[Rfam]
The record is a 65-nucleotide sequence from Nannospalax galili, which matches "Small nucleolar RNA SNORD58" in Rfam. The literature on the family includes a 1996 paper in Cell by Kiss-Laszlo et al., "Site-specific ribose methylation of preribosomal RNA: a novel function for small nucleolar RNAs". The family's consensus secondary structure was predicted with PFOLD. Its family is annotated with RNA processing and nucleolus in the Gene Ontology. Lineage of the source: Eukaryota > Gnathostomata > Amniota > Myomorpha > Nannospalax. snoRNA U58 is found in introns 1, 3 and 6 of the ribosomal protein RPL17 gene in humans. Rfam classes the family as a C/D-box small nucleolar RNA.
Nucleotides: 065
Stems, first nucleotide, its partner, number of pairs: 001064004
Number, partner (000 for none) and nucleotide at each position: 001064u002063u003062g004061c005000u006000g007000u008000g009000a010000u011000g012000a013000c014000a015000u016000u017000c018000u019000u020000a021000g022000g023000a024000c025000a026000c027000c028000u029000u030000u031000g032000g033000a034000u035000u036000a037000a038000c039000c040000a041000u042000g043000a044000a045000a046000u047000a048000a049000a050000u051000c052000g053000u054000g055000u056000u057000c058000u059000g060000a061004g062003c063002a064001g065000c